[Rfam]
RNA sequence: UCGGUGUGAGGUAGUAGGUUGUAUAGUUGCAUUACAUCCGUUGGGAGAACUGUACAACUUGCUAACUUUCCUCGG
Numbered sequence: 001u002c003g004g005u006g007u008g009a010g011g012u013a014g015u016a017g018g019u020u021g022u023a024u025a026g027u028u029g030c031a032u033u034a035c036a037u038c039c040g041u042u043g044g045g046a047g048a049a050c051u052g053u054a055c056a057a058c059u060u061g062c063u064a065a066c067u068u069u070c071c072u073c074g075g
Stems, first nucleotide, its partner, number of pairs: 001075004006070001008068003012064016038045002
Overview
Shown here is a 75-nucleotide RNA from Leptotrombidium deliense, a member of the family "let-7 microRNA precursor family". Lineage of the source: Eukaryota > Ecdysozoa > Prostigmata > Trombiculoidea > Leptotrombidium. For this family Rfam cites "microRNAs: tiny regulators with great potential" (Ambros, Cell, 2001). Gene Ontology terms of the family: RISC complex and miRNA-mediated post-transcriptional gene silencing. The match comes from Rfam's covariance-model search (56 bits). About the family: This family represents the microRNAs (miRNA) let-7 and mir-98. let-7 was identified from a study of developmental timing in C. elegans, and was later shown to be part of a much larger class of non-coding RNAs termed miRNAs.